[Rfam]
The record is a 65-nucleotide RNA sequence from Humidesulfovibrio mexicanus, which matches "Fluoride riboswitch aptamer (crcB RNA motif)" in Rfam. Rfam links the family to the GO terms positive regulation of gene expression and response to fluoride. Pairs were carried over by alignment from the consensus structure, which is taken from published work. Taxonomically the source falls in Humidesulfovibrio (Bacteria, Pseudomonadati, Desulfovibrionia, Desulfovibrionales).
RNA sequence: CUCCAACAAGGCGAAGGAGUUCGCCUCUAACCGCUUCCGCUGAAGCUGAUGACUCCUGUCCAGGC
Numbered sequence: 001c002u003c004c005a006a007c008a009a010g011g012c013g014a015a016g017g018a019g020u021u022c023g024c025c026u027c028u029a030a031c032c033g034c035u036u037c038c039g040c041u042g043a044a045g046c047u048g049a050u051g052a053c054u055c056c057u058g059u060c061c062a063g064g065c
Base pairs, nucleotide, nucleotide: 010025011024012023013022016056017055018054019053020052021051033046034045035044036043